The record is a 73-nucleotide sequence from Termitidicoccus mucosus, which matches "tRNA" in Rfam. NCBI's taxonomy places the organism under Bacteria, Verrucomicrobiota, Opitutales, Opitutaceae, Termitidicoccus. The family's RNA type in Rfam is transfer RNA.
[Rfam]
RNA sequence: GCCCAGAUAGCUCAGUUGGUAGAGCACGUCCUUGGUAAGGACGAGGUCGCCGGUUCGAGUCCGGUUCUGGGCU
Numbered sequence: 001g002c003c004c005a006g007a008u009a010g011c012u013c014a015g016u017u018g019g020u021a022g023a024g025c026a027c028g029u030c031c032u033u034g035g036u037a038a039g040g041a042c043g044a045g046g047u048c049g050c051c052g053g054u055u056c057g058a059g060u061c062c063g064g065u066u067c068u069g070g071g072c073u
Stems, first nucleotide, its partner, number of pairs: 001072007010025004027043005049065005